[Rfam]
mir-81 microRNA precursor family: an 87-nucleotide sequence from Caenorhabditis elegans. It is one of the family's seed sequences.

RNA sequence: GUUCUUUUAGCAACCGGUUUUCUCUGUGAUCUACAGAAUGACAGCUAAUCGUCUGAGAUCAUCGUGAAAGCCAGUUGUUUUUAUGAA
Number, nucleotide and partner (000 for none) at each position: 001g000002u000003u000004c000005u000006u000007u000008u000009a079010g078011c077012a076013a000014c000015c000016g072017g071018u070019u069020u068021u067022c066023u000024c064025u000026g000027u061028g060029a059030u058031c057032u056033a000034c000035a054036g053037a052038a000039u047040g000041a000042c000043a000044g000045c000046u000047a039048a000049u000050c000051g000052u037053c036054u035055g000056a032057g031058a030059u029060c028061a027062u000063c000064g024065u000066g022067a021068a020069a019070g018071c017072c016073a000074g000075u000076u012077g011078u010079u009080u000081u000082u000083a000084u000085g000086a000087a000
The family is grouped with related families in Rfam's "mir-81 clan". The family has 10 seed sequences and 68 matches in Rfam 15.1. The organism belongs to Caenorhabditis, within Eukaryota.